Annotation: The record is a 158-nucleotide RNA sequence from Bacillus sp. FJAT-26390, which matches "c-di-AMP riboswitch aptamer (ydaO/yuaA leader)" in Rfam. Taxonomically the source falls in Bacillus (Bacteria, Bacillota, Caryophanales, Bacillaceae). A search with the family's covariance model found it, with a score of 99 bits.
RNA sequence: AAACCUAAAUCGCUGAGUUCUGAAAAAGAAGCGGGGAAACCAUAGAGUGCUGAUCAUACGAUCUAAUCUCAGGGGUGAAUAACUUCAUUUACGAAGUUUAGGGCGACUUUUGCGCCCGAAUCCGUCAGCUAACCUCGUAAGCGUCCAGAAGAGGAAUU
Numbered sequence: 001a002a003a004c005c006u007a008a009a010u011c012g013c014u015g016a017g018u019u020c021u022g023a024a025a026a027a028g029a030a031g032c033g034g035g036g037a038a039a040c041c042a043u044a045g046a047g048u049g050c051u052g053a054u055c056a057u058a059c060g061a062u063c064u065a066a067u068c069u070c071a072g073g074g075g076u077g078a079a080u081a082a083c084u085u086c087a088u089u090u091a092c093g094a095a096g097u098u099u100a101g102g103g104c105g106a107c108u109u110u111u112g113c114g115c116c117c118g119a120a121u122c123c124g125u126c127a128g129c130u131a132a133c134c135u136c137g138u139a140a141g142c143g144u145c146c147a148g149a150a151g152a153g154g155a156a157u158u
Stems, first nucleotide, its partner, number of pairs: 011143004018030003031138006041072001073123003081098004101117004
Dot-bracket structure: ..........((((...(((.......)))((((((....(..............................)(((.....((((..........))))..((((.........))))...))).........)))))).))))...............
Its family is annotated with regulation of gene expression and cyclic-di-AMP binding in the Gene Ontology.